[Rfam]
RNA sequence: UUUACCCAGGUCUGUGGUUGCGGGAUUCGGCCCCUGCCUUUUCUAGGCGGUCGGUUGAUACCCUAGUCCAUGACAGACGAGGUCAAAGGGAUCCACGUAAGCCGGACGUGAGCGUGCCGGCGAGCAUGGCUCGUCCUAGGAGUAAGUCGCACCGCCCGACGAUAAGCAAGGACGUGGGGUCCUGCGGGCGAGAGAGCCCACGGUGGGGGGCCGUAGCCCCGAAGCCAAAGCCCCGGUGCGCGAGUGUGGGGGAAAAUACCAGGUCAGCUGGGUAAG
Numbered sequence: 001u002u003u004a005c006c007c008a009g010g011u012c013u014g015u016g017g018u019u020g021c022g023g024g025a026u027u028c029g030g031c032c033c034c035u036g037c038c039u040u041u042u043c044u045a046g047g048c049g050g051u052c053g054g055u056u057g058a059u060a061c062c063c064u065a066g067u068c069c070a071u072g073a074c075a076g077a078c079g080a081g082g083u084c085a086a087a088g089g090g091a092u093c094c095a096c097g098u099a100a101g102c103c104g105g106a107c108g109u110g111a112g113c114g115u116g117c118c119g120g121c122g123a124g125c126a127u128g129g130c131u132c133g134u135c136c137u138a139g140g141a142g143u144a145a146g147u148c149g150c151a152c153c154g155c156c157c158g159a160c161g162a163u164a165a166g167c168a169a170g171g172a173c174g175u176g177g178g179g180u181c182c183u184g185c186g187g188g189c190g191a192g193a194g195a196g197c198c199c200a201c202g203g204u205g206g207g208g209g210g211c212c213g214u215a216g217c218c219c220c221g222a223a224g225c226c227a228a229a230g231c232c233c234c235g236g237u238g239c240g241c242g243a244g245u246g247u248g249g250g251g252g253a254a255a256a257u258a259c260c261a262g263g264u265c266a267g268c269u270g271g272g273u274a275a276g
Stems, first nucleotide, its partner, number of pairs: 001276009012267003015261004070247003073083001076135006092129002102119001104117001127254001148240005153190005194233001196231002203225002209218003
raiA RNA: a 276-nucleotide sequence.
The family's RNA type in Rfam is riboswitch.